[Rfam]
RNA sequence: UGCGGCAGAUGAUGCGAAUUGUAAAUCUUAUCCUACACGCUGAAGCAUGGUGUUGACCAAAAUCUCCGCUUAUUAUCUGAUGCCCCC
Numbered sequence: 001u002g003c004g005g006c007a008g009a010u011g012a013u014g015c016g017a018a019u020u021g022u023a024a025a026u027c028u029u030a031u032c033c034u035a036c037a038c039g040c041u042g043a044a045g046c047a048u049g050g051u052g053u054u055g056a057c058c059a060a061a062a063u064c065u066c067c068g069c070u071u072a073u074u075a076u077c078u079g080a081u082g083c084c085c086c087c
Stems, first nucleotide, its partner, number of pairs: 004084004
This 87-nucleotide RNA sequence from Zingiber officinale belongs to the Rfam family "Small nucleolar RNA R16". The family's RNA type in Rfam is C/D-box small nucleolar RNA. The match comes from Rfam's covariance-model search (73 bits). The family has 18 seed sequences and 884 matches in Rfam 15.1.